[Rfam]
SAM riboswitch aptamer (S box leader): a 109-nucleotide sequence from Thermolongibacillus altinsuensis. The family's consensus secondary structure is taken from published work.
RNA sequence: CGCUUAUCAAGAGUGACCGAGGGAACAGGCCCUAUGACGUCCGGCAACCUCCUUAUAAAAGGAACGGUGCCAAAUCCUGCAGAAUGGUUUCCAUUCUGAAAGAUAAGUC
Numbered sequence: 001c002g003c004u005u006a007u008c009a010a011g012a013g014u015g016a017c018c019g020a021g022g023g024a025a026c027a028g029g030c031c032c033u034a035u036g037a038c039g040u041c042c043g044g045c046a047a048c049c050u051c052c053u054u055a056u057a058a059a060a061g062g063a064a065c066g067g068u069g070c071c072a073a074a075u076c077c078u079g080c081a082g083a084a085u086g087g088u089u090u091c092c093a094u095u096c097u098g099a100a101a102g103a104u105a106a107g108u109c
Stems, first nucleotide, its partner, number of pairs: 002108007013042001015041003021032003026079004043071004048067002050063004075101001080098006
Taxonomically the source falls in Thermolongibacillus (Bacteria, Bacillati, Bacilli, Anoxybacillaceae).